[Rfam]
RNA sequence: UCCGCCACUAUGCCUGUCUGACCCGGUGACUGAGUAUAAUCCAGUGGGGGCUCAGAUUGACCCGGCUUUAGGAAACAGAACCGCCCACACAAAUGGACCGCUCUGUGCCGAAAAGUCUGGAACAUUU
Numbered sequence: 001u002c003c004g005c006c007a008c009u010a011u012g013c014c015u016g017u018c019u020g021a022c023c024c025g026g027u028g029a030c031u032g033a034g035u036a037u038a039a040u041c042c043a044g045u046g047g048g049g050g051c052u053c054a055g056a057u058u059g060a061c062c063c064g065g066c067u068u069u070a071g072g073a074a075a076c077a078g079a080a081c082c083g084c085c086c087a088c089a090c091a092a093a094u095g096g097a098c099c100g101c102u103c104u105g106u107g108c109c110g111a112a113a114a115g116u117c118u119g120g121a122a123c124a125u126u127u
Stems, first nucleotide, its partner, number of pairs: 005047005018034002021031001023028001062120004066115004071109002076105004081100001085096002

The family of this 127-nucleotide sequence from Cynoglossus semilaevis is "Small nucleolar RNA SNORA65". The family's consensus secondary structure was predicted with RNAalifold. The source organism's lineage runs through Eukaryota, Teleostei, Eurypterygia, Cynoglossidae and Cynoglossus. The match comes from Rfam's covariance-model search (87 bits). U65 belongs to the H/ACA class of snoRNAs which are thought to guide the sites of modification of uridines to pseudouridines. Rfam links the family to the GO terms nucleolus and RNA processing. Clan: SNORA65 clan.